[Rfam]
RNA sequence: AGUGAUAAUGAGUGAAAGAACAUGACUGACUUGGUAUUGCUGCCCUUUGGCAUCAUUGACCAAGUUCUGAUUGAACAAGUUUAAUCUUCUCUCUGAGCUG
Numbered sequence: 001a002g003u004g005a006u007a008a009u010g011a012g013u014g015a016a017a018g019a020a021c022a023u024g025a026c027u028g029a030c031u032u033g034g035u036a037u038u039g040c041u042g043c044c045c046u047u048u049g050g051c052a053u054c055a056u057u058g059a060c061c062a063a064g065u066u067c068u069g070a071u072u073g074a075a076c077a078a079g080u081u082u083a084a085u086c087u088u089c090u091c092u093c094u095g096a097g098c099u100g
Base pairs, nucleotide, nucleotide: 002098003097039054041052042051
Z30 small nucleolar RNA: a 100-nucleotide RNA sequence from Cyprinus carpio. A search with the family's covariance model found it, with a score of 51 bits. Rfam 15.1 lists 802 matches to the family in 647 species. Rfam classes the family as a C/D-box small nucleolar RNA. The family's consensus secondary structure was predicted with PFOLD. Gene Ontology terms of the family: nucleolus and RNA processing.